[Rfam]
RNA sequence: AUGGGAAACCAUAGCAUCAGGGUCCAGUUGCAUAAAACCCCGACAUUCGGGGUUUUUUGUUAUCUGAAGAUGACCAUUCGGAUGAAUACUGGCUUUAGGCCCUUUUUUU
Number, nucleotide and partner (000 for none) at each position: 001a000002u000003g000004g000005g000006a000007a000008a000009c000010c000011a000012u000013a000014g000015c000016a000017u000018c000019a000020g000021g000022g000023u000024c000025c000026a000027g000028u000029u000030g000031c000032a000033u000034a056035a055036a054037a053038c052039c051040c050041c049042g048043a000044c000045a000046u000047u000048c042049g041050g040051g039052g038053u037054u036055u035056u034057u000058u000059g000060u000061u000062a000063u000064c000065u000066g000067a000068a000069g000070a000071u000072g000073a000074c000075c000076a000077u000078u000079c000080g000081g000082a000083u000084g000085a000086a000087u000088a000089c000090u000091g101092g100093c099094u000095u000096u000097a000098g000099g093100c092101c091102c000103u000104u000105u000106u000107u000108u000109u000
The record is a 109-nucleotide RNA from Enterovibrio coralii, which matches "Gammaprotebacteria rimP leader" in Rfam. It scores 74 bits against the family's covariance model. A reference for the family is Naville and Gautheret (2010), "Premature terminator analysis sheds light on a hidden world of bacterial transcriptional attenuation", Genome Biol.